[Rfam]
Bacterial RNase P class A: a 544-nucleotide RNA sequence from Chitiniphilus eburneus. Lineage of the source: Bacteria > Pseudomonadota > Betaproteobacteria > Neisseriales > Chitiniphilus. The match comes from Rfam's covariance-model search (220 bits). Rfam classes the family as a ribozyme.

RNA sequence: AAAGCAGGACGGACCGUCGCUGCCGUGGUGACACGGGGGAGGAAAGUCCGGGCUCCAUAGGGCAGGAUGCCGGCUAACGGCCGGGCGGCGAAAGCCGACGGACAGUGCAACAGAGAGCCGAACCGCCGAUGGCGCGGACUGCGCGGCGCGCAAGCGCCGCAAAGGCUCCUUUCCGGGAGGCUUCGGCCAAGCGGACGAGGGGACGCCGAGCGCAAGCAAGGUGACCGCCCGGUCUGGGACGCAUGCGGACCAGACCGGCUGGGUUGAAAGCGCGAUUGAAGCGCGCCGGACCAGGCACAGGCAAGGGUGAAAAGGUGUUCCCGUCGGGGAACCCCCGUGAGGGGGCGGUAAGAGCGCACCGCAGGACUGGCAACAGGACUGGCAGGGUAAACCCCAUCCGGAGCAAGACCAAGCAGCAGGCGUUGAAGCGGCCCGCCGAGUCUGCGGGUAGGUUGCUGGAGCGCCGUGGUAACGCGGCGCCUAGAGGAAUGACGGUCACCCUCGCAAGAGGGGACAGAACCCGGCUUACAGGCCUGCUUUGCAG
Numbered sequence: 001a002a003a004g005c006a007g008g009a010c011g012g013a014c015c016g017u018c019g020c021u022g023c024c025g026u027g028g029u030g031a032c033a034c035g036g037g038g039g040a041g042g043a044a045a046g047u048c049c050g051g052g053c054u055c056c057a058u059a060g061g062g063c064a065g066g067a068u069g070c071c072g073g074c075u076a077a078c079g080g081c082c083g084g085g086c087g088g089c090g091a092a093a094g095c096c097g098a099c100g101g102a103c104a105g106u107g108c109a110a111c112a113g114a115g116a117g118c119c120g121a122a123c124c125g126c127c128g129a130u131g132g133c134g135c136g137g138a139c140u141g142c143g144c145g146g147c148g149c150g151c152a153a154g155c156g157c158c159g160c161a162a163a164g165g166c167u168c169c170u171u172u173c174c175g176g177g178a179g180g181c182u183u184c185g186g187c188c189a190a191g192c193g194g195a196c197g198a199g200g201g202g203a204c205g206c207c208g209a210g211c212g213c214a215a216g217c218a219a220g221g222u223g224a225c226c227g228c229c230c231g232g233u234c235u236g237g238g239a240c241g242c243a244u245g246c247g248g249a250c251c252a253g254a255c256c257g258g259c260u261g262g263g264u265u266g267a268a269a270g271c272g273c274g275a276u277u278g279a280a281g282c283g284c285g286c287c288g289g290a291c292c293a294g295g296c297a298c299a300g301g302c303a304a305g306g307g308u309g310a311a312a313a314g315g316u317g318u319u320c321c322c323g324u325c326g327g328g329g330a331a332c333c334c335c336c337g338u339g340a341g342g343g344g345g346c347g348g349u350a351a352g353a354g355c356g357c358a359c360c361g362c363a364g365g366a367c368u369g370g371c372a373a374c375a376g377g378a379c380u381g382g383c384a385g386g387g388u389a390a391a392c393c394c395c396a397u398c399c400g401g402a403g404c405a406a407g408a409c410c411a412a413g414c415a416g417c418a419g420g421c422g423u424u425g426a427a428g429c430g431g432c433c434c435g436c437c438g439a440g441u442c443u444g445c446g447g448g449u450a451g452g453u454u455g456c457u458g459g460a461g462c463g464c465c466g467u468g469g470u471a472a473c474g475c476g477g478c479g480c481c482u483a484g485a486g487g488a489a490u491g492a493c494g495g496u497c498a499c500c501c502u503c504g505c506a507a508g509a510g511g512g513g514a515c516a517g518a519a520c521c522c523g524g525c526u527u528a529c530a531g532g533c534c535u536g537c538u539u540u541g542c543a544g
Stems, first nucleotide, its partner, number of pairs: 001540008010531001011529001012497007020039002023036005044527003048524005053403004060434004065399005070084005085099001086097004100394002105392002107388002123306002125302003130297002133294001314360004361383001362381003367376003407454004416445006428436002461480008